[Rfam]
RNA sequence: AUAGCUGAACGGCCAGGUCCCCCCGGUGGCGGUGAGCGGGCCGUCGCCCAGGUGGUCACCGCCGGCCAGUGCGGUGACGGUGGUCUCCUCGUCGUACCUGCCGGCGCCGAUACGGUCCACCCGGCCGUGCACGAUCAGCACCAGCCGGUCGUCCGGCGUACCGGCCUCGGCGAUCAGCUCGCCGGGCGCGUACUCGUGCUGGGUGAACCGCCGGCCGAGUGCCGCGAGCACCUCGGUGUCGGUGAAGUCCCGCAGGGCGCGCAGUUCCCGUAGCUCGUCCGGGAUGACCGAGGCGUCGGUGCCGUUGAUAUCGAAGUCGAUACGCCCGUCACCCACGGUGUAGGCCAGCCGGCGGUUCACCCGGUACGUGCCACCGGACACCUGUACCCAGGGCAGCAGCCGCAGCAGCCAGCGGGACGUGAUGCCCUGCAUCUGCGGCGGGGUCUUGGUGGUGGUCGCCAAAUUCCGUGCGGCGGUGGUGCUCAGACUGGAAUUCUGGAAUUCUUCCG
Numbered sequence: 001a002u003a004g005c006u007g008a009a010c011g012g013c014c015a016g017g018u019c020c021c022c023c024c025g026g027u028g029g030c031g032g033u034g035a036g037c038g039g040g041c042c043g044u045c046g047c048c049c050a051g052g053u054g055g056u057c058a059c060c061g062c063c064g065g066c067c068a069g070u071g072c073g074g075u076g077a078c079g080g081u082g083g084u085c086u087c088c089u090c091g092u093c094g095u096a097c098c099u100g101c102c103g104g105c106g107c108c109g110a111u112a113c114g115g116u117c118c119a120c121c122c123g124g125c126c127g128u129g130c131a132c133g134a135u136c137a138g139c140a141c142c143a144g145c146c147g148g149u150c151g152u153c154c155g156g157c158g159u160a161c162c163g164g165c166c167u168c169g170g171c172g173a174u175c176a177g178c179u180c181g182c183c184g185g186g187c188g189c190g191u192a193c194u195c196g197u198g199c200u201g202g203g204u205g206a207a208c209c210g211c212c213g214g215c216c217g218a219g220u221g222c223c224g225c226g227a228g229c230a231c232c233u234c235g236g237u238g239u240c241g242g243u244g245a246a247g248u249c250c251c252g253c254a255g256g257g258c259g260c261g262c263a264g265u266u267c268c269c270g271u272a273g274c275u276c277g278u279c280c281g282g283g284a285u286g287a288c289c290g291a292g293g294c295g296u297c298g299g300u301g302c303c304g305u306u307g308a309u310a311u312c313g314a315a316g317u318c319g320a321u322a323c324g325c326c327c328g329u330c331a332c333c334c335a336c337g338g339u340g341u342a343g344g345c346c347a348g349c350c351g352g353c354g355g356u357u358c359a360c361c362c363g364g365u366a367c368g369u370g371c372c373a374c375c376g377g378a379c380a381c382c383u384g385u386a387c388c389c390a391g392g393g394c395a396g397c398a399g400c401c402g403c404a405g406c407a408g409c410c411a412g413c414g415g416g417a418c419g420u421g422a423u424g425c426c427c428u429g430c431a432u433c434u435g436c437g438g439c440g441g442g443g444u445c446u447u448g449g450u451g452g453u454g455g456u457c458g459c460c461a462a463a464u465u466c467c468g469u470g471c472g473g474c475g476g477u478g479g480u481g482c483u484c485a486g487a488c489u490g491g492a493a494u495u496c497u498g499g500a501a502u503u504c505u506u507c508c509g
Stems, first nucleotide, its partner, number of pairs: 007387001009385004016326002024319004030313001035309001037307003043303001045301004050296001052231002056227002059224001061222002063109004073101001075100002080095005115220002118217001121214001124211002127208002129204002132201002138195001140194001146190002151187007159176001164171002233293002238288004243283001251277002253273001255269003327340004349377004354372002358370003389429007397421002401416001403414001405413001435474002438471001440469001442467002446462005475508002478503003482499001484498003